Source information
A member of the RNA family "Exoribonuclease-resistant RNA (xrRNA) plant-infecting virus (class 3)" from Polerovirus SABYV, 51 nucleotides long. It is one of the family's seed sequences. Exoribonuclease-resistant RNA (xrRNA) plant-infecting virus (class 3) is a ncRNA that was reported in Plant viruses. The literature on the family includes a 2024 paper in bioRxiv [Preprint] by Gezelle et al., "The pseudoknot structure of a viral RNA reveals a conserved mechanism for programmed exoribonuclease resistance". By type it is a cis-regulatory element.
RNA sequence: AUAACUAGCCGGAAAUACGUUGUUGCAAUUGCCGGAAGUUAAAGUCAACUA
Numbered sequence: 001a002u003a004a005c006u007a008g009c010c011g012g013a014a015a016u017a018c019g020u021u022g023u024u025g026c027a028a029u030u031g032c033c034g035g036a037a038g039u040u041a042a043a044g045u046c047a048a049c050u051a
Base pairs, nucleotide, nucleotide: 003039009035010034012033013030014029019049020048021047022046